[Rfam]
RNA sequence: UUCGAAGAUAGAGGUCGCAAACUUUAUCAGUAAUUUAUCGGAGCUCAGGCAGAGCUGUGAGGAUGGAUGAAAGGAACGUUUGCCGAAGAUGAAAGCAGUGCCUACUGCUGAUUCUGGGAGUAUGGAUAAUAUCUAUACUACUGUCAUUAAACUAAUCGGUUUAAUGGGGUGCUGUCGGUGUU
Numbered sequence: 001u002u003c004g005a006a007g008a009u010a011g012a013g014g015u016c017g018c019a020a021a022c023u024u025u026a027u028c029a030g031u032a033a034u035u036u037a038u039c040g041g042a043g044c045u046c047a048g049g050c051a052g053a054g055c056u057g058u059g060a061g062g063a064u065g066g067a068u069g070a071a072a073g074g075a076a077c078g079u080u081u082g083c084c085g086a087a088g089a090u091g092a093a094a095g096c097a098g099u100g101c102c103u104a105c106u107g108c109u110g111a112u113u114c115u116g117g118g119a120g121u122a123u124g125g126a127u128a129a130u131a132u133c134u135a136u137a138c139u140a141c142u143g144u145c146a147u148u149a150a151a152c153u154a155a156u157c158g159g160u161u162u163a164a165u166g167g168g169g170u171g172c173u174g175u176c177g178g179u180g181u182u
Stems, first nucleotide, its partner, number of pairs: 007176005017083006024076002033068007087115003094109005116142002119139008144167007
Shown here is a 182-nucleotide RNA sequence from Propionigenium maris, a member of the family "Lysine riboswitch aptamer". NCBI's taxonomy places the organism under Bacteria, Fusobacteriati, Fusobacteriota, Propionigenium, Propionigenium maris.